RNA sequence: GGGUGCUUCCAGCUUCUUUACAGUGCUGCCUUGUUGCAACCAUGUCAAGCAGCAUUGUACAGGGCUAUGAAAGACCCC
Numbered sequence: 001g002g003g004u005g006c007u008u009c010c011a012g013c014u015u016c017u018u019u020a021c022a023g024u025g026c027u028g029c030c031u032u033g034u035u036g037c038a039a040c041c042a043u044g045u046c047a048a049g050c051a052g053c054a055u056u057g058u059a060c061a062g063g064g065c066u067a068u069g070a071a072a073g074a075c076c077c078c
Base pairs, nucleotide, nucleotide: 014064015063016062017061019059020058021057022056023055024054025053026052027051028050030049031048032047033046
A member of the RNA family "mir-103/107 microRNA precursor family" from Ophiophagus hannah, 78 nucleotides long. This family consists of the mammalian microRNA (miRNA) precursors mir-103 and mir107. Animal miRNAs are transcribed as ~70nt precursors and subsequently processed by the Dicer enzyme to give a ~22nt product. Lineage of the source: Eukaryota > Metazoa > Lepidosauria > Squamata > Ophiophagus. Pairs were carried over by alignment from the consensus structure, which was predicted with RNAalifold.